[Rfam]
RNA sequence: GAGUUUAUUCUAUUGGCAAGGUUAACCGAAAGGGAAGCCGCAGGGAAACCAACAGGUCCGUAGCGAAAGCAUGGGACGGCGUAUUAAAAGUGCGCGGAGUCAAUAGGAUAAGACCCGAAGCCUAGUGAUCUAUGCGUGGGCAGGUUGAAGCGUGUCGAAAGGCGCGUGGAGGACCGCAAGCGGUUUUGAUAUGCAAAUCAUUCGCGUGACCUGCGUAUAGGAGUGAAAGAUUCAUCGAACUGGGCAUCAGCUGGUU
Numbered sequence: 001g002a003g004u005u006u007a008u009u010c011u012a013u014u015g016g017c018a019a020g021g022u023u024a025a026c027c028g029a030a031a032g033g034g035a036a037g038c039c040g041c042a043g044g045g046a047a048a049c050c051a052a053c054a055g056g057u058c059c060g061u062a063g064c065g066a067a068a069g070c071a072u073g074g075g076a077c078g079g080c081g082u083a084u085u086a087a088a089a090g091u092g093c094g095c096g097g098a099g100u101c102a103a104u105a106g107g108a109u110a111a112g113a114c115c116c117g118a119a120g121c122c123u124a125g126u127g128a129u130c131u132a133u134g135c136g137u138g139g140g141c142a143g144g145u146u147g148a149a150g151c152g153u154g155u156c157g158a159a160a161g162g163c164g165c166g167u168g169g170a171g172g173a174c175c176g177c178a179a180g181c182g183g184u185u186u187u188g189a190u191a192u193g194c195a196a197a198u199c200a201u202u203c204g205c206g207u208g209a210c211c212u213g214c215g216u217a218u219a220g221g222a223g224u225g226a227a228a229g230a231u232u233c234a235u236c237g238a239a240c241u242g243g244g245c246a247u248c249a250g251c252u253g254g255u256u
Base pairs, nucleotide, nucleotide: 005111006110007109008108009107010106011105012104013103014102015101016100017099020039021038022037023036026033027032043050044049056077057076058075059074063070064069080094081093082092083091114254115253117251121244122243123242124241125240126239130220131219132218133217134216135215136214137213138212139211140210141208143175144174145173146172150167151166152165153164154163155162156161180205181204182203183202186200188199189198222232223231224230

A member of the RNA family "Archaeal large subunit ribosomal RNA" from Methanolinea tarda, 256 nucleotides of a longer RNA. It is one of the family's seed sequences. Clan: LSU clan. NCBI's taxonomy places the organism under Archaea, Methanomicrobia, Methanomicrobiales, Methanoregulaceae, Methanolinea tarda. Gene Ontology terms of the family: ribosome and structural constituent of ribosome.